[Rfam]
Shown here is a 118-nucleotide RNA from Zizania palustris, a member of the family "Small nucleolar RNA snoR104". By type it is an H/ACA-box small nucleolar RNA. Rfam links the family to the GO terms nucleolus and RNA processing. On this family, see Marker et al., Curr Biol 2002: "Experimental RNomics: identification of 140 candidates for small non-messenger RNAs in the plant Arabidopsis thaliana". Taxonomically the source falls in Zizania (Eukaryota, Viridiplantae, Streptophytina, Spermatophyta).

RNA sequence: AGGUAGCAUUCAGAAGACAAGAUGCCUACCCGAUACAAUCUUCCUAUAGUUAUAUUGUCACUUCCUGCUUGCAGUAUUGUUAGCAAGUCCUGCAAGUCUCAGAUGACAAGACAGCUUC
Numbered sequence: 001a002g003g004u005a006g007c008a009u010u011c012a013g014a015a016g017a018c019a020a021g022a023u024g025c026c027u028a029c030c031c032g033a034u035a036c037a038a039u040c041u042u043c044c045u046a047u048a049g050u051u052a053u054a055u056u057g058u059c060a061c062u063u064c065c066u067g068c069u070u071g072c073a074g075u076a077u078u079g080u081u082a083g084c085a086a087g088u089c090c091u092g093c094a095a096g097u098c099u100c101a102g103a104u105g106a107c108a109a110g111a112c113a114g115c116u117u118c
Stems, first nucleotide, its partner, number of pairs: 002030002005027001006025005056111001058109001067097008076088003